[Rfam]
RNA: FMN riboswitch aptamer (RFN element)
Organism: Rhizobium oryziradicis
RNA sequence: AAACGUUCUCAGGGCGGGGCGAAAUUCCCCACCGGCGGUAUCGGGUGUAAAAUCCCGGAGCCCGCGAGCGCUUCUUGGCACAUGUUGAGAAGGUCAGCAGAUCCGGUGAGAAGCCGGAGCCGACGGUAUAGUCCGGAUGGAAGAGAGCAAGC
Numbered sequence: 001a002a003a004c005g006u007u008c009u010c011a012g013g014g015c016g017g018g019g020c021g022a023a024a025u026u027c028c029c030c031a032c033c034g035g036c037g038g039u040a041u042c043g044g045g046u047g048u049a050a051a052a053u054c055c056c057g058g059a060g061c062c063c064g065c066g067a068g069c070g071c072u073u074c075u076u077g078g079c080a081c082a083u084g085u086u087g088a089g090a091a092g093g094u095c096a097g098c099a100g101a102u103c104c105g106g107u108g109a110g111a112a113g114c115c116g117g118a119g120c121c122g123a124c125g126g127u128a129u130a131g132u133c134c135g136g137a138u139g140g141a142a143g144a145g146a147g148c149a150a151g152c
Base pairs, nucleotide, nucleotide: 005148006147007146008145009144010143017029018028019027031132032131033122034121035065036064037063038062060120061119068098069097102118103117104116105115106114124135125134126133